This 108-nucleotide sequence from Pontibacillus yanchengensis belongs to the Rfam family "SAM riboswitch aptamer (S box leader)". It scores 100 bits against the family's covariance model.
[Rfam]
RNA sequence: CUCUUAUCACGAGAGGCGGAGGGACUGGCCCUAUGAAGCCCGGCAACCAUCAAACAUUGUUUGAAAGGUGCCAAAUCCUGCUAAGUCUAAGACUUAGAUAGAUGAGAG
Dot-bracket structure: ((((((((....(.(((...(((.[.[[)))......))))((((.((.((((.......))))..))))))...(]].]((((((.....))))))..)))))))))
Overview
The SAM riboswitch is found upstream of a number of genes which code for proteins involved in methionine or cysteine biosynthesis in Gram-positive bacteria. The SAM riboswitch acts at the level of transcription termination control. The predicted structure consists of a complex stem-loop region followed by a single stem loop terminator region. An alternative and mutually exclusive form involves bases in the 3' segment of helix 1 with those in the 5' region of helix 5 to form a structure termed the anti-terminator form. This entry represents the conserved core of the complex structure involving helices 1-4. The base pairs follow the family's consensus structure, which is taken from published work.